[Rfam]
RNA: Burkholderia RNA 14
Organism: Azoarcus indigens
RNA sequence: GUCGGCGUCAUCACCGUGCAAUCGCAGUCGGUGCCGCUGGUCACCGAACUGCCAGGCCGCACCAACCCCUAUCUGAUCGCCGAAGUGCGCCCGCAGGUCACCGGCAUCGUGAAGAAGCGCGCCUUCAACGAAGGCGGCGAGGUGAAGGCCGGCGAGCUGCUCUACCAGAUCGA
Number, nucleotide and partner (000 for none) at each position: 001g000002u000003c000004g053005g052006c051007g050008u047009c046010a000011u043012c000013a041014c040015c039016g038017u000018g037019c036020a000021a000022u033023c031024g000025c000026a000027g000028u000029c000030g000031g023032u000033g022034c000035c000036g019037c018038u016039g015040g014041u013042c000043a011044c000045c000046g009047a008048a000049c000050u007051g006052c005053c004054a000055g150056g149057c148058c147059g143060c142061a000062c000063c139064a000065a000066c136067c000068c134069c000070u133071a000072u131073c130074u000075g000076a000077u000078c089079g088080c087081c000082g000083a000084a000085g000086u000087g080088c079089g078090c000091c000092c121093g120094c000095a000096g000097g118098u000099c000100a000101c000102c114103g000104g000105c111106a110107u000108c000109g000110u106111g105112a000113a000114g102115a000116a000117g000118c097119g000120c093121g092122c000123c000124u000125u000126c000127a000128a000129c000130g073131a072132a000133g070134g068135c000136g066137g000138c000139g063140a000141g000142g060143u059144g000145a000146a000147g058148g057149c056150c055151g000152g000153c000154g000155a000156g000157c172158u000159g000160c168161u167162c000163u000164a000165c000166c000167a161168g160169a000170u000171c000172g157173a000